The family of this 82-nucleotide RNA sequence from Aphanothece sacrum is "tRNA". The match comes from Rfam's covariance-model search (51 bits). Gene Ontology term of the family: triplet codon-amino acid adaptor activity. Taxonomically the source falls in Aphanothece sacrum (Bacteria, Cyanobacteriota, Chroococcales, Aphanothece). The base pairs follow the family's consensus structure, which is taken from published work. By type it is a transfer RNA.

RNA sequence: GCGGAUGUGGUGGAAUUGGUAGACACGCACGCUUGAGGGGCGUGUGGCUUACGUCGUGCGAGUUCAAGUCUCGCUAUCCGCA
Numbered sequence: 001g002c003g004g005a006u007g008u009g010g011u012g013g014a015a016u017u018g019g020u021a022g023a024c025a026c027g028c029a030c031g032c033u034u035g036a037g038g039g040g041c042g043u044g045u046g047g048c049u050u051a052c053g054u055c056g057u058g059c060g061a062g063u064u065c066a067a068g069u070c071u072c073g074c075u076a077u078c079c080g081c082a
Stems, first nucleotide, its partner, number of pairs: 001081007010026003028044005058074005